[Rfam]
MIR7502 microRNA precursor family: a 125-nucleotide sequence from Gossypium raimondii. The base pairs follow the family's consensus structure, which was predicted with RNAalifold. The family has 6 seed sequences and 74,505 matches in Rfam 15.1.
RNA sequence: UAUUAAAAAUUUGAUCCAUUUCUAUUGCUAAAAACCAAAUAAAUGACACAUGGCGUGCCACAUGUACCUCAUGCUGAUGUAUAAGCACCAAUUUUUAAAAGUAGAAAUGUAUGAAAUUUUUAACA
Numbered sequence: 001u002a003u004u005a006a007a008a009a010u011u012u013g014a015u016c017c018a019u020u021u022c023u024a025u026u027g028c029u030a031a032a033a034a035c036c037a038a039a040u041a042a043a044u045g046a047c048a049c050a051u052g053g054c055g056u057g058c059c060a061c062a063u064g065u066a067c068c069u070c071a072u073g074c075u076g077a078u079g080u081a082u083a084a085g086c087a088c089c090a091a092u093u094u095u096u097a098a099a100a101g102u103a104g105a106a107a108u109g110u111a112u113g114a115a116a117u118u119u120u121u122a123a124c125a
Stems, first nucleotide, its partner, number of pairs: 003123010014112002018108009029097005